[Rfam]
RNA sequence: GGAAUAUGAGGAGUGGUCAUUUCUCGCUUAUAUAAAUUGCGAGAGGGGUGUCCGCCCAAGCCUGGUUACGACAAAUUGGGCAUCCCCAUUCUUAACCAUCUGAUUCC
Number, nucleotide and partner (000 for none) at each position: 001g107002g106003a105004a104005u000006a000007u000008g000009a000010g000011g000012a000013g000014u098015g097016g096017u095018c000019a000020u000021u000022u000023c043024u042025c041026g040027c039028u000029u000030a000031u000032a000033u000034a000035a000036a000037u000038u000039g027040c026041g025042a024043g023044a000045g086046g085047g084048g083049u082050g081051u080052c079053c000054g000055c000056c000057c000058a000059a000060g000061c000062c000063u078064g077065g076066u075067u000068a000069c000070g000071a000072c000073a000074a000075a066076u065077u064078g063079g052080g051081c050082a049083u048084c047085c046086c045087c000088a000089u000090u000091c000092u000093u000094a000095a017096c016097c015098a014099u000100c000101u000102g000103a000104u004105u003106c002107c001
RNA: Small nucleolar RNA Z279/snoR105/snoR108
Organism: Beta vulgaris